Shown here is a 64-nucleotide RNA from Rattus norvegicus, a member of the family "U7 small nuclear RNA".
RNA sequence: GAGUGAACACAACUCUCUUAGAAUUUUUUCUAGCAGCUUUUCUGAUUUUGGUCAGAAAACUCAU
Numbered sequence: 001g002a003g004u005g006a007a008c009a010c011a012a013c014u015c016u017c018u019u020a021g022a023a024u025u026u027u028u029u030c031u032a033g034c035a036g037c038u039u040u041u042c043u044g045a046u047u048u049u050g051g052u053c054a055g056a057a058a059a060c061u062c063a064u
Stems, first nucleotide, its partner, number of pairs: 036061001038059009
From the family's description: Animal histone pre-mRNAs are spliced by a different mechanism than nuclear pre-mRNAs and self-splicing introns. The base pairs follow the family's consensus structure, which was predicted with PFOLD. It scores 35 bits against the family's covariance model.